[Rfam]
The record is a 134-nucleotide sequence from Enhydra lutris, which matches "Small nucleolar RNA SNORA13" in Rfam.
ACA13 is a member of the H/ACA class of snoRNA that guide the sites of modification of uridines to pseudouridines.
The family's consensus secondary structure was predicted with CMfinder.

Nucleotides: 134
Base pairs, nucleotide, nucleotide: 002057003056004055005054006053007052009049010048012046013045014044015043016041018039019038020037021036023034069127070126071125072124073122074121075120076119077118078117083116084115085114086113087112088111089109090108093104
Number, partner (000 for none) and nucleotide at each position: 001000a002057g003056c004055c005054u006053u007052u008000g009049u010048g011000u012046u013045g014044u015043c016041c017000a018039u019038u020037c021036a022000c023034u024000u025000u026000u027000g028000g029000a030000a031000a032000c033000u034023a035000c036021u037020g038019a039018a040000c041016g042000u043015g044014g045013u046012g047000u048010c049009a050000a051000a052007a053006a054005a055004g056003g057002u058000g059000g060000a061000a062000a063000c064000u065000a066000a067000a068000u069127g070126c071125u072124u073122u074121g075120c076119a077118g078117c079000c080000u081000u082000u083116u084115c085114c086113u087112g088111u089109c090108c091000u092000u093104g094000a095000a096000u097000u098000g099000g100000a101000u102000a103000c104093u105000g106000u107000u108090g109089g110000u111088g112087u113086a114085g115084g116083a117078g118077c119076u120075g121074c122073a123000u124072a125071a126070g127069u128000a129000a130000c131000a132000g133000u134000u